[Rfam]
RNA sequence: GCCGGGGGUCGGAUAAUACAACACCCGCAAGGGGAAUAGUCCGGCCUGACCAUUGCAGGUUCUGAGCCCCCGGCGCCAGGGC
Numbered sequence: 001g002c003c004g005g006g007g008g009u010c011g012g013a014u015a016a017u018a019c020a021a022c023a024c025c026c027g028c029a030a031g032g033g034g035a036a037u038a039g040u041c042c043g044g045c046c047u048g049a050c051c052a053u054u055g056c057a058g059g060u061u062c063u064g065a066g067c068c069c070c071c072g073g074c075g076c077c078a079g080g081g082c
Base pairs, nucleotide, nucleotide: 001074002073003072004071005070006069007068008067010043011042012041013040014038015037024033025032026031044060045059046058047057048056
The record is an 82-nucleotide RNA sequence from Azospirillum doebereinerae, which matches "sRNA-Xcc1" in Rfam. By type it is a small RNA. Lineage of the source: Bacteria > Pseudomonadati > Pseudomonadota > Azospirillaceae > Azospirillum.